[Rfam]
A member of the RNA family "Small nucleolar RNA snR34" from Hansenula ciferrii, 202 nucleotides long. Taxonomically the source falls in Hansenula (Eukaryota, Opisthokonta, Ascomycota, Phaffomycetales).
RNA sequence: CAAUCAAAAAGUAAAGGGAAACAUUUGCCACGAUGAAUUAACGUAAAUUGUCAAGUUAAUUCAUUGCCAUUCAAGAGAUUGCAGUCUCUUAAUGACCGUUUCCAAGAUCAAAAAUUUUAUUUGUCCUGGAUAGGAAGUUUGGAUAUCGUGUAUCUUCCAAAGGGAGGUGAUGAAAUCUGAAUGUCGAUGAAAGGAGAUAUCU
Dot-bracket structure: ...............................(((((((((((............))))))))))).................................................((((.((...............((((.(.(.((..((..((((......))))..)))).).).))))......))))))........

By type it is an H/ACA-box small nucleolar RNA.